speF leader: a 156-nucleotide sequence from Arminella tubonensis. From the family's description: This family is a putative regulatory RNA structure that is found upstream of the speF gene encoding ornithine decarboxylase in Agrobacterium tumefaciens and other alpha-proteobacteria. It scores 118 bits against the family's covariance model. For this family Rfam cites "Evidence for a second class of S-adenosylmethionine riboswitches and other regulatory RNA motifs in alpha-proteobacteria" (Corbino et al., Genome Biol, 2005).
[Rfam]
RNA sequence: UCCCGGCUUUCCAUCAGCCGGGGUUACUGAAGAGGCACACCAUCAUUGCCGGAAGUGCGGUUGGGAAUUUCCCUCCAAUCCAUGGCAGACAAAGCCGAACUUAUGCCGACUAUUGGCGUUGGUUCACGAAUUGCGCGUCGAGCGUUUGCUAGGGAU
Numbered sequence: 001u002c003c004c005g006g007c008u009u010u011c012c013a014u015c016a017g018c019c020g021g022g023g024u025u026a027c028u029g030a031a032g033a034g035g036c037a038c039a040c041c042a043u044c045a046u047u048g049c050c051g052g053a054a055g056u057g058c059g060g061u062u063g064g065g066a067a068u069u070u071c072c073c074u075c076c077a078a079u080c081c082a083u084g085g086c087a088g089a090c091a092a093a094g095c096c097g098a099a100c101u102u103a104u105g106c107c108g109a110c111u112a113u114u115g116g117c118g119u120u121g122g123u124u125c126a127c128g129a130a131u132u133g134c135g136c137g138u139c140g141a142g143c144g145u146u147u148g149c150u151a152g153g154g155a156u
Stems, first nucleotide, its partner, number of pairs: 001023008034050004057136003084096002104118005